Xanthomonas sRNA sX9: a 76-nucleotide sequence from Xanthomonas albilineans.

RNA sequence: AUCUGCAAACUACAUACUGCGGUUCCUGCGCGCUGUCCGCGCCUACCCGACAGCAACUCGCGACGUUUUGUUGGCC
Dot-bracket structure: .(.((.......)).)...((((.(....).))))...........(((((((..............)))))))..
About this RNA
Rfam 15.1 lists 309 matches to the family in 52 species. The family's RNA type in Rfam is small RNA. The literature on the family includes a 2011 paper in Nucleic Acids Res by Schmidtke et al., "Genome-wide transcriptome analysis of the plant pathogen Xanthomonas identifies sRNAs with putative virulence functions". Taxonomically the source falls in Xanthomonas albilineans (Bacteria, Gammaproteobacteria, Lysobacterales, Xanthomonas). A search with the family's covariance model found it, with a score of 58 bits.